This 114-nucleotide RNA from Ureibacillus yapensis belongs to the Rfam family "SAM riboswitch aptamer (S box leader)". The source organism's lineage runs through Bacteria, Bacillota, Bacilli, Caryophanales and Ureibacillus. The family's consensus secondary structure is taken from published work.

[Rfam]
RNA sequence: AUCUUAUCAAGAGAAGCAGAGGGAAAUGGCCCGAUGAAGCUUCAGCAACCUCUAACAAGGUUAGAAAGGUGCUAAUUCCAGCAAGAUUGCAUUUCGCAUCUUGGGAGAUAAGAG
Numbered sequence: 001a002u003c004u005u006a007u008c009a010a011g012a013g014a015a016g017c018a019g020a021g022g023g024a025a026a027u028g029g030c031c032c033g034a035u036g037a038a039g040c041u042u043c044a045g046c047a048a049c050c051u052c053u054a055a056c057a058a059g060g061u062u063a064g065a066a067a068g069g070u071g072c073u074a075a076u077u078c079c080a081g082c083a084a085g086a087u088u089g090c091a092u093u094u095c096g097c098a099u100c101u102u103g104g105g106a107g108a109u110a111a112g113a114g
Stems, first nucleotide, its partner, number of pairs: 002113007013043005021032003027080003044073004049069002051065004077106001082103006

From the family's description: The SAM riboswitch is found upstream of a number of genes which code for proteins involved in methionine or cysteine biosynthesis in Gram-positive bacteria.